[Rfam]
RNA sequence: GGCCUCAUUCCAUGUGCAUGUGGGCCCAGCUGACCCUGGUGUCCAGAGGGAAAUGUGACCACAUUGACCACAGGUCAUGCUUCCAUCAUAGCAGGCUCGUUGCUGUGGUGACAAUGGGACCUGUGACAGGU
Numbered sequence: 001g002g003c004c005u006c007a008u009u010c011c012a013u014g015u016g017c018a019u020g021u022g023g024g025c026c027c028a029g030c031u032g033a034c035c036c037u038g039g040u041g042u043c044c045a046g047a048g049g050g051a052a053a054u055g056u057g058a059c060c061a062c063a064u065u066g067a068c069c070a071c072a073g074g075u076c077a078u079g080c081u082u083c084c085a086u087c088a089u090a091g092c093a094g095g096c097u098c099g100u101u102g103c104u105g106u107g108g109u110g111a112c113a114a115u116g117g118g119a120c121c122u123g124u125g126a127c128a129g130g131u
Base pairs, nucleotide, nucleotide: 002059004057006055007054008053021045022044023043024042025041027039070124071123072122073121074120084110085109086108087107088106089105
Shown here is a 131-nucleotide RNA from Sorex araneus, a member of the family "Small nucleolar RNA SNORA1". Pairs were carried over by alignment from the consensus structure, which was predicted with PFOLD. NCBI's taxonomy places the organism under Eukaryota, Eumetazoa, Deuterostomia, Eutheria, Sorex. By type it is an H/ACA-box small nucleolar RNA.